[Rfam]
RNA sequence: AACUCAAUACAGGGGAGCUUGUGUGACAGGCUGAGAGGAAGGAUGACCUUCGACCCUUAUACCUGAUGUGGGUAAUGCCACCGUAGGAACUUCUUUUGCUCUGUGA
Dot-bracket structure: .....(..(.((((..(((((.....)))))......(((((....)))))..))))....((((..((((......))))..))))...)..)............
Numbered sequence: 001a002a003c004u005c006a007a008u009a010c011a012g013g014g015g016a017g018c019u020u021g022u023g024u025g026a027c028a029g030g031c032u033g034a035g036a037g038g039a040a041g042g043a044u045g046a047c048c049u050u051c052g053a054c055c056c057u058u059a060u061a062c063c064u065g066a067u068g069u070g071g072g073u074a075a076u077g078c079c080a081c082c083g084u085a086g087g088a089a090c091u092u093c094u095u096u097u098g099c100u101c102u103g104u105g106a
Stems, first nucleotide, its partner, number of pairs: 006094001009091001011057004017031005038051005062087004068081004

The record is a 106-nucleotide RNA sequence from Stomatobaculum longum, which matches "TPP riboswitch aptamer (THI element)" in Rfam. Pairs were carried over by alignment from the consensus structure, which is taken from published work. A search with the family's covariance model found it, with a score of 67 bits. NCBI's taxonomy places the organism under Bacteria, Bacillota, Clostridia, Lachnospirales, Stomatobaculum.